[Rfam]
RNA sequence: UGCCCAGCAACUCCUAUCCCUACCUCCUCGUGGUACUGGCCGGGGUACGAGUAACCUUUGGGAGAUGUGCCGGGAUAAGGAUGGG
Number, nucleotide and partner (000 for none) at each position: 001u000002g000003c000004c000005c000006a000007g000008c000009a000010a000011c000012u000013c085014c084015u083016a082017u081018c080019c079020c000021u077022a034023c033024c032025u000026c000027c000028u000029c000030g000031u000032g024033g023034u022035a000036c000037u000038g000039g000040c000041c000042g000043g000044g000045g076046u075047a000048c073049g000050a000051g070052u069053a068054a000055c000056c000057u000058u000059u000060g000061g000062g000063a000064g000065a000066u000067g000068u053069g052070c051071c000072g000073g048074g000075a046076u045077a021078a000079g019080g018081a017082u016083g015084g014085g013

The family of this 85-nucleotide sequence from Aedes aegypti is "drz-agam-1 ribozyme". For this family Rfam cites "Widespread occurrence of self-cleaving ribozymes" (Webb et al., Science, 2009). NCBI's taxonomy places the organism under Eukaryota, Metazoa, Panarthropoda, Pancrustacea, Stegomyia. Rfam links the family to the GO term catalytic activity.